[Rfam]
RNA sequence: UGUAUGCACGCAUGACUAAGUCGCUUUGGAUAAAAGCGUCUGCUAAAUGGCAUUUU
Numbered sequence: 001u002g003u004a005u006g007c008a009c010g011c012a013u014g015a016c017u018a019a020g021u022c023g024c025u026u027u028g029g030a031u032a033a034a035a036g037c038g039u040c041u042g043c044u045a046a047a048u049g050g051c052a053u054u055u056u
Base pairs, nucleotide, nucleotide: 013045014043017042018041022038023037024036025035026034027033

Rfam assigns this 56-nucleotide sequence to the family "UnaL2 LINE 3' element". Rfam describes the family as follows. The eel long interspersed element (LINE) UnaL2 and its partner short interspersed element (SINE) share a conserved 3' tail containing a stem-loop that is critical for their retrotransposition.